[Rfam]
Background
The family of this 74-nucleotide sequence from Xenopus tropicalis is "mir-34 microRNA precursor family". On this family, see Lim et al., Science 2003: "Vertebrate microRNA genes". Rfam describes the family as follows. Human mir-34a was discovered computationally and later experimentally verified. The mature sequence is excised from the 5' arm of the hairpin. Clan: mir-34 clan.
RNA sequence: GGUUUUCAGGCAGUGUAGUUAGCUGAUUGUGUUAACAUAAGACUUGCAAUCACUAGCUAAACUACCAGCAAAAC
Numbered sequence: 001g002g003u004u005u006u007c008a009g010g011c012a013g014u015g016u017a018g019u020u021a022g023c024u025g026a027u028u029g030u031g032u033u034a035a036c037a038u039a040a041g042a043c044u045u046g047c048a049a050u051c052a053c054u055a056g057c058u059a060a061a062c063u064a065c066c067a068g069c070a071a072a073a074c
Base pairs, nucleotide, nucleotide: 003072004071005070009066010065012063013062014061016059017058018057019056020055021054022053024052025051026050027049028048029047030046031045